Source information:
The family of this 80-nucleotide sequence from Ophiophagus hannah is "mir-363 microRNA precursor family". The family has 22 seed sequences and 620 matches in Rfam 15.1. The source organism's lineage runs through Eukaryota, Eumetazoa, Squamata, Colubroidea and Ophiophagus. Rfam links the family to the GO terms miRNA-mediated post-transcriptional gene silencing and RISC complex.
RNA sequence: GCUGUUGUCGGGUGGAUCACGAUGCAAUUUUGAUUAGAUUAGCAGGAAGGAAAUUGCACGGUAUCCAUCUGUAAACCGCA
Number, nucleotide and partner (000 for none) at each position: 001g000002c000003u000004g000005u000006u000007g000008u000009c071010g070011g069012g068013u067014g066015g065016a064017u063018c000019a062020c061021g000022a000023u058024g057025c056026a055027a054028u053029u052030u051031u050032g000033a000034u000035u000036a000037g000038a000039u000040u000041a000042g000043c000044a000045g000046g000047a000048a000049g000050g031051a030052a029053a028054u027055u026056g025057c024058a023059c000060g000061g020062u019063a017064u016065c015066c014067a013068u012069c011070u010071g009072u000073a000074a000075a000076c000077c000078g000079c000080a000
Annotation:
Pairs were carried over by alignment from the consensus structure, which was predicted with RNAalifold.